This 109-nucleotide sequence from Chengkuizengella marina belongs to the Rfam family "SAM riboswitch aptamer (S box leader)". The family's consensus secondary structure is taken from published work. A search with the family's covariance model found it, with a score of 89 bits. Taxonomically the source falls in Chengkuizengella (Bacteria, Bacillota, Bacilli, Paenibacillaceae).
RNA sequence: CUCUUAUCAAGAGAGGUGGAGGGAAUGUGCCCUAUGAAACCCGGCAACCGUCAAUGAUAAAUUGAAAUGGUGCCAAUUCGCACAAAGUGAAAACUUUGGAAGAUGAGAG
Numbered sequence: 001c002u003c004u005u006a007u008c009a010a011g012a013g014a015g016g017u018g019g020a021g022g023g024a025a026u027g028u029g030c031c032c033u034a035u036g037a038a039a040c041c042c043g044g045c046a047a048c049c050g051u052c053a054a055u056g057a058u059a060a061a062u063u064g065a066a067a068u069g070g071u072g073c074c075a076a077u078u079c080g081c082a083c084a085a086a087g088u089g090a091a092a093a094c095u096u097u098g099g100a101a102g103a104u105g106a107g108a109g
Base pairs, nucleotide, nucleotide: 001109002108003107004106005105006104007103008102013042015041016040017039021032022031023030026082027081028080029079043074044073045072046071048070049069051065052064053063078101083098084097085096086095087094088093